[Rfam]
RNA: U5 spliceosomal RNA
RNA sequence: ACCGAGUCGUCCUUGUCUAGUCGAAUGUUAUUCUCGCCUUUUACUAGAAUAACCCGUGGACUGGGACAUCAAAAGGCUCGCCAUAUCUAUUUUUUGGGCUCCUUUUCCCAGGAGAU
Dot-bracket structure: ..((((..(((((.(((((.......((((((((...........))))))))...))))).))))).........))))..................(((((......)))))..